[Rfam]
RNA: terC RNA
RNA sequence: CUCGCGGACCGGGCCCCUCUGGCGGCUGUUCCCCCUGACAGUCGCGAUGUCGGACCGCUUCG
Dot-bracket structure: .....((.((((.........((((((((........))))))))....)))).))......